[Rfam]
RNA sequence: UCAAAUAAAAACUUUAUGUCGAAGACUUGGGUGCCAAGAUGCUUAAUAUCCCAACGAGAUCAAAAGUAGGAAUGAAUGAUCUACCUCUUUUGUCGAUGACAUAGGAGGUUUUUAUUUAUAAAA
Numbered sequence: 001u002c003a004a005a006u007a008a009a010a011a012c013u014u015u016a017u018g019u020c021g022a023a024g025a026c027u028u029g030g031g032u033g034c035c036a037a038g039a040u041g042c043u044u045a046a047u048a049u050c051c052c053a054a055c056g057a058g059a060u061c062a063a064a065a066g067u068a069g070g071a072a073u074g075a076a077u078g079a080u081c082u083a084c085c086u087c088u089u090u091u092g093u094c095g096a097u098g099a100c101a102u103a104g105g106a107g108g109u110u111u112u113u114a115u116u117u118a119u120a121a122a123a
Stems, first nucleotide, its partner, number of pairs: 028053004033042002084108006091101003
Rfam assigns this 123-nucleotide sequence from Candidatus Xianfuyuplasma coldseepsis to the family "Ribosomal protein L10 leader". The source organism's lineage runs through Bacteria, Mycoplasmatota, Candidatus Izemoplasmatales, Candidatus Izemoplasmataceae and Candidatus Xianfuyuplasma. It scores 56 bits against the family's covariance model.